[Rfam]
RNA sequence: UUAAGAGGAACAUCUGCCAAGAACGCCACAUCGUGUGGCAAGGCAUAUGUGACAAACUUCGUAUUUA
Numbered sequence: 001u002u003a004a005g006a007g008g009a010a011c012a013u014c015u016g017c018c019a020a021g022a023a024c025g026c027c028a029c030a031u032c033g034u035g036u037g038g039c040a041a042g043g044c045a046u047a048u049g050u051g052a053c054a055a056a057c058u059u060c061g062u063a064u065u066u067a
Base pairs, nucleotide, nucleotide: 011049012048013047015045016044017043025039026038027037028036029035054066055065056064
RNA: Bacillaceae-1 RNA